[Rfam]
Annotation:
Shown here is a 102-nucleotide sequence from Hibiscus trionum, a member of the family "Small nucleolar RNA Z103". The match comes from Rfam's covariance-model search (92 bits). NCBI's taxonomy places the organism under Eukaryota, Magnoliopsida, malvids, Malvales, Hibiscus. A reference for the family is Chen et al. (2003), "The high diversity of snoRNAs in plants: identification and comparative study of 120 snoRNA genes from Oryza sativa", Nucleic Acids Res. The family's consensus secondary structure was predicted with PFOLD.
RNA sequence: GUGGAAGUGAUGAUUAUUUCCCCAGAUGAUCGAAGCUGAACAAACUGUGCGAAUUAUAAAUUUCCAAUUCGUUGGAGAUUCCAAGCCAGAACUCUGAUCCAU
Numbered sequence: 001g002u003g004g005a006a007g008u009g010a011u012g013a014u015u016a017u018u019u020c021c022c023c024a025g026a027u028g029a030u031c032g033a034a035g036c037u038g039a040a041c042a043a044a045c046u047g048u049g050c051g052a053a054u055u056a057u058a059a060a061u062u063u064c065c066a067a068u069u070c071g072u073u074g075g076a077g078a079u080u081c082c083a084a085g086c087c088a089g090a091a092c093u094c095u096g097a098u099c100c101a102u
Stems, first nucleotide, its partner, number of pairs: 001102005